A member of the RNA family "MIR5269 microRNA precursor family" from Medicago truncatula, 79 nucleotides long. The base pairs follow the family's consensus structure, which was predicted with RNAalifold.

RNA sequence: UUGAUUUAAAUCAUUAUGGAUAUACACUUUGAAAAUUGAACCCACACAAAGUAGUGAGACAUAUAUUGAUUUUAUCCAA
Numbered sequence: 001u002u003g004a005u006u007u008a009a010a011u012c013a014u015u016a017u018g019g020a021u022a023u024a025c026a027c028u029u030u031g032a033a034a035a036u037u038g039a040a041c042c043c044a045c046a047c048a049a050a051g052u053a054g055u056g057a058g059a060c061a062u063a064u065a066u067u068g069a070u071u072u073u074a075u076c077c078a079a
Stems, first nucleotide, its partner, number of pairs: 001079003006074001008072006015065004023056002026052006